Annotation: The record is a 166-nucleotide sequence from Oscillospiraceae bacterium Marseille-Q3528, which matches "Clostridiales-1 RNA" in Rfam. The base pairs follow the family's consensus structure, which is taken from published work. Lineage of the source: Bacteria > Bacillati > Bacillota > Eubacteriales > Oscillospiraceae.

[Rfam]
RNA sequence: UGGCGGAGGGGAUCAUCAGAAAAUACUGGUGAUCCCGGAUCGCUGUGCCGGGGAUUUUUUGUUGACAGCCAAGAUAACAUGAGUCAGAAGGGCAACAGCCCGGAUGACGAAUGCUGUCAGCAGCUGUGGGAGUGCCAUUGGGCACGGAGCGGCUGGCUUUUUGUCA
Numbered sequence: 001u002g003g004c005g006g007a008g009g010g011g012a013u014c015a016u017c018a019g020a021a022a023a024u025a026c027u028g029g030u031g032a033u034c035c036c037g038g039a040u041c042g043c044u045g046u047g048c049c050g051g052g053g054a055u056u057u058u059u060u061g062u063u064g065a066c067a068g069c070c071a072a073g074a075u076a077a078c079a080u081g082a083g084u085c086a087g088a089a090g091g092g093c094a095a096c097a098g099c100c101c102g103g104a105u106g107a108c109g110a111a112u113g114c115u116g117u118c119a120g121c122a123g124c125u126g127u128g129g130g131a132g133u134g135c136c137a138u139u140g141g142g143c144a145c146g147g148a149g150c151g152g153c154u155g156g157c158u159u160u161u162u163g164u165c166a
Stems, first nucleotide, its partner, number of pairs: 001166007011069001013067001017061008026052001073118004078113003083108004090101004121155007132145004